[Rfam]
The record is a 121-nucleotide RNA sequence, which matches "DUF3800-I RNA" in Rfam.
It is annotated as a small RNA.
Rfam's curators write: Actinobacteria, Firmicutes, Fusobacteria, Proteobacteria (1 example), Tenericutes (2 examples).
RNA sequence: UCAAGGUACAGACGUAGGUACUGUUGUACAGUCAUAAGCGAUCGAAUUGAUUAAGCGUAUUGUAAAUACGUCGCCUGGCUAGGGUAAACCUUCUAAUUAUAGAAGGUUUACUUUUUUUAUG
Numbered sequence: 001u002c003a004a005g006g007u008a009c010a011g012a013c014g015u016a017g018g019u020a021c022u023g024u025u026g027u028a029c030a031g032u033c034a035u036a037a038g039c040g041a042u043c044g045a046a047u048u049g050a051u052u053a054a055g056c057g058u059a060u061u062g063u064a065a066a067u068a069c070g071u072c073g074c075c076u077g078g079c080u081a082g083g084g085u086a087a088a089c090c091u092u093c094u095a096a097u098u099a100u101a102g103a104a105g106g107u108u109u110a111c112u113u114u115u116u117u118u119a120u121g
Stems, first nucleotide, its partner, number of pairs: 007026001008024004012019002030080005038074003041051003055071006084111012